[Rfam]
Nucleotides: 264
Base pairs, nucleotide, nucleotide: 003262004261005260006259007258008056009055010054011029012028013027014026015025016024018022033053034052035051036050037049061257062256063255064254065253066252070248071247072246073245076241078239079238080237081236082235083234084233085232089227090226093224094223095222096221097220101217102216103214104213105212112208113207114206115205116204117203118202119201120197121196122195123194124193125192126188129186130185131184132183133182135178136177137176138175139174145170146169147168148167153162154161155160
Number, partner (000 for none) and nucleotide at each position: 001000u002000c003262g004261u005260g006259c007258a008056g009055c010054c011029g012028g013027g014026g015025u016024g017000g018022u019000a020000g021000c022018g023000g024016u025015a026014c027013c028012u029011u030000g031000c032000a033053c034052c035051u036050g037049c038000a039000a040000u041000c042000c043000g044000c045000u046000a047000u048000a049037g050036c051035a052034g053033g054010g055009g056008u057000g058000a059000u060000a061257u062256u063255g064254c065253g066252c067000a068000g069000a070248g071247g072246g073245c074000a075000u076241a077000u078239g079238c080237u081236g082235g083234u084233g085232a086000a087000g088000c089227u090226g091000c092000c093224u094223u095222u096221g097220g098000a099000a100000a101217g102216u103214g104213a105212c106000g107000u108000u109000g110000a111000u112208g113207u114206c115205c116204g117203g118202g119201u120197c121196u122195c123194a124193c125192g126188c127000g128000a129186c130185g131184g132183a133182a134000a135178u136177c137176u138175g139174u140000g141000a142000a143000u144000c145170g146169u147168g148167u149000c150000a151000g152000g153162u154161c155160g156000g157000g158000a159000a160155c161154g162153a163000a164000g165000c166000a167148g168147c169146a170145c171000u172000a173000a174139g175138c176137g177136g178135a179000a180000c181000c182133u183132u184131c185130c186129g187000g188126g189000u190000g191000c192125c193124g194123u195122g196121a197120g198000g199000g200000u201119g202118c203117c204116u205115g206114g207113a208112c209000u210000g211000a212105g213104u214103u215000a216102a217101c218000u219000a220097c221096c222095a223094g224093a225000g226090u227089a228000a229000c230000g231000u232085u233084u234083a235082u236081u237080g238079g239078u240000u241076u242000u243000a244000a245073g246072u247071u248070c249000g250000a251000a252066g253065c254064g255063c256062a257061a258007u259006g260005c261004a262003c263000a264000u